RNA sequence: GCUGGUGUCAGUGAUGACUACUUUUUUUUCCCCAGCAGAUCGACCGUGUUGACUGUCUUCUGUUUAAGCCAAACUUUUCUGAUACACCACC
Dot-bracket structure: (.((((((...........................................................................)))))).)
Rfam assigns this 91-nucleotide RNA from Scleropages formosus to the family "Small nucleolar SNORD12/SNORD106". The family's RNA type in Rfam is C/D-box small nucleolar RNA. On this family, see Huttenhofer et al., EMBO J 2001: "RNomics: an experimental approach that identifies 201 candidates for novel, small, non-messenger RNAs in mouse". NCBI's taxonomy places the organism under Eukaryota, Vertebrata, Actinopterygii, Neopterygii, Scleropages. Rfam 15.1 lists 2,264 matches to the family in 650 species.